[Rfam]
A member of the RNA family "mir-8/mir-141/mir-200 microRNA precursor family" from Clarias magur, 69 nucleotides long. The organism belongs to Clarias, within Eukaryota. Gene Ontology terms of the family: RISC complex and miRNA-mediated post-transcriptional gene silencing. The family is grouped with related families in Rfam's "mir-8 microRNA precursor clan". Pairs were carried over by alignment from the consensus structure, which was predicted with RNAalifold.
RNA sequence: GGGCACAUCUUACCUGACAGUGCUGGGCUGAUCACUGGUGUUCUAACACUGUCUGGUAAUGAUGCACAC
Numbered sequence: 001g002g003g004c005a006c007a008u009c010u011u012a013c014c015u016g017a018c019a020g021u022g023c024u025g026g027g028c029u030g031a032u033c034a035c036u037g038g039u040g041u042u043c044u045a046a047c048a049c050u051g052u053c054u055g056g057u058a059a060u061g062a063u064g065c066a067c068a069c
Stems, first nucleotide, its partner, number of pairs: 003067001006064004010059005016053007024045004

A search with the family's covariance model found it, with a score of 60 bits. On this family, see Lagos-Quintana et al., Science 2001: "Identification of novel genes coding for small expressed RNAs".